Source information: TPP riboswitch aptamer (THI element): a 105-nucleotide sequence from Chthoniobacter flavus. From the family's description: Vitamin B(1) in its active form thiamin pyrophosphate (TPP) is an essential coenzyme that is synthesised by coupling of pyrimidine and thiazole moieties in bacteria. The match comes from Rfam's covariance-model search (64 bits).
[Rfam]
RNA sequence: GAAAACCAGCAGGGGAGCCGUUUAGGCUGAGAGGUUUGCGAAAGCAAACGACCCUUUGAACCUGACGCGGGUCAUGCCGCCGCAGGGAGCCGCGCCGUCGCAAAG
Numbered sequence: 001g002a003a004a005a006c007c008a009g010c011a012g013g014g015g016a017g018c019c020g021u022u023u024a025g026g027c028u029g030a031g032a033g034g035u036u037u038g039c040g041a042a043a044g045c046a047a048a049c050g051a052c053c054c055u056u057u058g059a060a061c062c063u064g065a066c067g068c069g070g071g072u073c074a075u076g077c078c079g080c081c082g083c084a085g086g087g088a089g090c091c092g093c094g095c096c097g098u099c100g101c102a103a104a105g
Stems, first nucleotide, its partner, number of pairs: 007092001009090002011055004017027003034049005061086004067080004